[Rfam]
The family of this 90-nucleotide sequence from Streptomyces populi is "Streptomyces RNA 3202". Lineage of the source: Bacteria > Bacillati > Kitasatosporales > Streptomycetaceae > Streptomyces. For this family Rfam cites "Deep sequencing-based identification of small non-coding RNAs in Streptomyces coelicolor" (Vockenhuber et al., RNA Biol, 2011).

RNA sequence: CCGAGUCCCGACGCACACCCCCCCGCGCCGGGACUCUUCCAGAGCCGAGCUUCGGCGCCUCCCCCCCCGGCGUCGAAGCUCGGCUCCAUC
Numbered sequence: 001c002c003g004a005g006u007c008c009c010g011a012c013g014c015a016c017a018c019c020c021c022c023c024c025g026c027g028c029c030g031g032g033a034c035u036c037u038u039c040c041a042g043a044g045c046c047g048a049g050c051u052u053c054g055g056c057g058c059c060u061c062c063c064c065c066c067c068c069g070g071c072g073u074c075g076a077a078g079c080u081c082g083g084c085u086c087c088a089u090c
Stems, first nucleotide, its partner, number of pairs: 005034006012027003042086010053075007
About this RNA:
Rfam describes the family as follows. Identified by deep sequencing of transcriptome at the end of exponential growth phase. Appears smaller on northern blot than sequencing transcript. This indicates processing step. Streptomyces specific.